[Rfam]
RNA sequence: UGAGUCAGUCAGGCGGCCGCGUCGAGCCCUCGGGCUCGCCGAGGAACGUCCGGGCUCCGCAGAGCAGGGUGGUGGGUAACACCCACCCGGGGUGACCCGCGGGAAAGUGCCACAGAGAACAGACCGCCCGACCGGUCCGCCGGUCGGGUAAGGGUGAAACGGUGGUGUAAGAGACCACCAGCGUGCCGGGUGACCGGUGCGGCUCGGUAAACCCCACCCGGAGCAAGGUCAGACAGGGAGCGUUCGAGGGCUGCUCGCCCGAGCUCCCGGGUAGGCCGCUGGAGGCGUGCGGCAACGUACGUCGUAGAGGGAUGGCCGCCACUCGCGCAGUGCGGGCAACCGCGCGCGAGGACAGAACCCGGCGUAUCGACUGACUCAUCCG
Number, nucleotide and partner (000 for none) at each position: 001u378002g377003a376004g375005u374006c373007a372008g371009u370010c369011a367012g320013g319014c318015g317016g316017c315018c314019g000020c041021g040022u000023c038024g037025a036026g035027c034028c033029c000030u000031c000032g000033g028034g027035c026036u025037c024038g023039c000040c021041g020042a000043g000044g000045a000046a365047c364048g363049u000050c362051c361052g360053g359054g358055c223056u222057c221058c220059g000060c000061a000062g256063a255064g254065c253066a000067g219068g218069g217070u216071g215072g086073u085074g084075g083076g082077u000078a000079a000080c000081a000082c076083c075084c074085a073086c072087c101088c099089g098090g097091g096092g000093u000094g000095a000096c091097c090098c089099g088100c000101g087102g214103g213104a000105a000106a000107g212108u211109g208110c207111c206112a000113c000114a000115g000116a000117g000118a000119a000120c000121a000122g000123a000124c153125c152126g149127c148128c147129c146130g145131a144132c143133c142134g141135g000136u000137c000138c000139g000140c000141c134142g133143g132144u131145c130146g129147g128148g127149u126150a000151a000152g125153g124154g000155u000156g000157a000158a000159a000160c000161g179162g178163u177164g176165g175166u174167g000168u000169a000170a000171g000172a000173g000174a166175c165176c164177a163178c162179c161180a000181g203182c201183g200184u199185g198186c197187c196188g195189g194190g000191u000192g000193a000194c189195c188196g187197g186198u185199g184200c183201g182202g000203c181204u000205c000206g111207g110208u109209a000210a000211a108212c107213c103214c102215c071216a070217c069218c068219c067220g058221g057222a056223g055224c000225a000226a000227g277228g276229u275230c274231a000232g000233a000234c000235a000236g268237g267238g266239a265240g264241c263242g000243u000244u000245c000246g000247a000248g260249g259250g258251c257252u000253g065254c064255u063256c062257g251258c250259c249260c248261g000262a000263g241264c240265u239266c238267c237268c236269g000270g000271g000272u000273a000274g230275g229276c228277c227278g000279c000280u000281g000282g000283a000284g303285g302286c301287g300288u299289g298290c297291g296292g000293c000294a000295a000296c291297g290298u289299a288300c287301g286302u285303c284304g000305u000306a000307g000308a000309g000310g000311g000312a000313u000314g018315g017316c016317c015318g014319c013320c012321a000322c000323u000324c000325g000326c000327g000328c000329a000330g000331u000332g000333c000334g000335g000336g000337c000338a000339a000340c000341c000342g000343c000344g000345c000346g000347c000348g000349a000350g000351g000352a000353c000354a000355g000356a000357a000358c054359c053360c052361g051362g050363c048364g047365u046366a000367u011368c000369g010370a009371c008372u007373g006374a005375c004376u003377c002378a001379u000380c000381c000382g000